[Rfam]
RNA sequence: GGGGUACGCGAUAGACUUACCUCCACGUGGUGCACCCCAGGCAACGUAUACUUAUAGGGCAAAAAUGUUUAU
Numbered sequence: 001g002g003g004g005u006a007c008g009c010g011a012u013a014g015a016c017u018u019a020c021c022u023c024c025a026c027g028u029g030g031u032g033c034a035c036c037c038c039a040g041g042c043a044a045c046g047u048a049u050a051c052u053u054a055u056a057g058g059g060c061a062a063a064a065a066u067g068u069u070u071a072u
Stems, first nucleotide, its partner, number of pairs: 001038005007032001019031003045058001047056003
RNA: HDV ribozyme from F. prausnitzii